[Rfam]
RNA sequence: GGUUCAGGCGACAUCCUCCUCCUCCUCCCUGAGGAUGUCGCCGCACCAACACGGAAGCCCUCUCCUCCUCCCUUGGGCUUCGUGUCAAGGCGGCGACCCCCUCCUCCUCCCUGGGGUCGCCGCACUUU
Numbered sequence: 001g002g003u004u005c006a007g008g009c010g011a012c013a014u015c016c017u018c019c020u021c022c023u024c025c026u027c028c029c030u031g032a033g034g035a036u037g038u039c040g041c042c043g044c045a046c047c048a049a050c051a052c053g054g055a056a057g058c059c060c061u062c063u064c065c066u067c068c069u070c071c072c073u074u075g076g077g078c079u080u081c082g083u084g085u086c087a088a089g090g091c092g093g094c095g096a097c098c099c100c101c102u103c104c105u106c107c108u109c110c111c112u113g114g115g116g117u118c119g120c121c122g123c124a125c126u127u128u
Stems, first nucleotide, its partner, number of pairs: 007042003011038007050084004055080006090123011
RNA: Alphaproteobacterial ar14